[Rfam]
RNA sequence: GGGUGCCAAUGAAGAAAAAUCGCAAGUGCCAACGAUUCAAUGGUGGAAAUUAAUCUUUCUGAUAUUUGCACGUCAGUCUGAGGCACCC
Numbered sequence: 001g002g003g004u005g006c007c008a009a010u011g012a013a014g015a016a017a018a019a020u021c022g023c024a025a026g027u028g029c030c031a032a033c034g035a036u037u038c039a040a041u042g043g044u045g046g047a048a049a050u051u052a053a054u055c056u057u058u059c060u061g062a063u064a065u066u067u068g069c070a071c072g073u074c075a076g077u078c079u080g081a082g083g084c085a086c087c088c
Stems, first nucleotide, its partner, number of pairs: 001088007
RNA: Small nucleolar RNA Z122